[Rfam]
This 101-nucleotide sequence from Sinobaca qinghaiensis belongs to the Rfam family "Purine riboswitch aptamer". Rfam links the family to the GO term purine nucleobase biosynthetic process. Riboswitches are metabolite binding domains within certain messenger RNAs that serve as precision sensors for their corresponding targets. A search with the family's covariance model found it, with a score of 72 bits.

RNA sequence: GGGAAUAAAUCAUCAUCUUUUCGUAUAAUUGCGGGAAUAAGGCCCGCAGGUUUCUACCAGCUGCCAUGAACAGCUUGGCUACGAAAAGGACAGCAGCAAGC
Numbered sequence: 001g002g003g004a005a006u007a008a009a010u011c012a013u014c015a016u017c018u019u020u021u022c023g024u025a026u027a028a029u030u031g032c033g034g035g036a037a038u039a040a041g042g043c044c045c046g047c048a049g050g051u052u053u054c055u056a057c058c059a060g061c062u063g064c065c066a067u068g069a070a071c072a073g074c075u076u077g078g079c080u081a082c083g084a085a086a087a088g089g090a091c092a093g094c095a096g097c098a099a100g101c
Stems, first nucleotide, its partner, number of pairs: 018087008029049007058077002060074004